[Rfam]
RNA sequence: CCCAUGUGGAUGCCCCACGGGAGGUCACUCUCCCUGGGGCUCUGUCUGGGUGGCAGAAGGCAGCUCAGGGCUCUGGCCCUUGAUGAGCGGUCCAUUCCCACAGCCCUGGAGAGAAAGCGGGGCCUUGCGUCCGCACCUACGUGUUCCCGCACCUGCUCAGAGUCCUGUGGACAGUGGCAGAGGAGACAAACCACGUAGGAAACAUUG
Numbered sequence: 001c002c003c004a005u006g007u008g009g010a011u012g013c014c015c016c017a018c019g020g021g022a023g024g025u026c027a028c029u030c031u032c033c034c035u036g037g038g039g040c041u042c043u044g045u046c047u048g049g050g051u052g053g054c055a056g057a058a059g060g061c062a063g064c065u066c067a068g069g070g071c072u073c074u075g076g077c078c079c080u081u082g083a084u085g086a087g088c089g090g091u092c093c094a095u096u097c098c099c100a101c102a103g104c105c106c107u108g109g110a111g112a113g114a115a116a117g118c119g120g121g122g123c124c125u126u127g128c129g130u131c132c133g134c135a136c137c138u139a140c141g142u143g144u145u146c147c148c149g150c151a152c153c154u155g156c157u158c159a160g161a162g163u164c165c166u167g168u169g170g171a172c173a174g175u176g177g178c179a180g181a182g183g184a185g186a187c188a189a190a191c192c193a194c195g196u197a198g199g200a201a202a203c204a205u206u207g
Base pairs, nucleotide, nucleotide: 001109002108006104007103008047009046010045011044012043014039015038016037020031021030022029023028050101051100052099053098060093062091063088065086066085067084068081069080136199137198138197139196140195141194142193153185154184156182157181158180162172163171164170165169
This 207-nucleotide RNA sequence from Phyllostomus discolor belongs to the Rfam family "Small nucleolar RNA SNORA73 family". U17 (SNORA73A and SNORA73B) also known as E1 belongs to the H/ACA class of small nucleolar RNAs (snoRNAs). Vertebrate U17 is intron-encoded and ranges in length from 200-230 nucleotides, longer than most snoRNAs. It is one of the most abundant snoRNAs in human cells and is essential for the cleavage of pre-rRNA within the 5' external transcribed spacer (ETS). For this family Rfam cites "5'ETS rRNA processing facilitated by four small RNAs: U14, E3, U17, and U3" (Enright et al., RNA, 1996). The organism belongs to Phyllostomus, within Eukaryota. Rfam links the family to the GO terms RNA processing and nucleolus.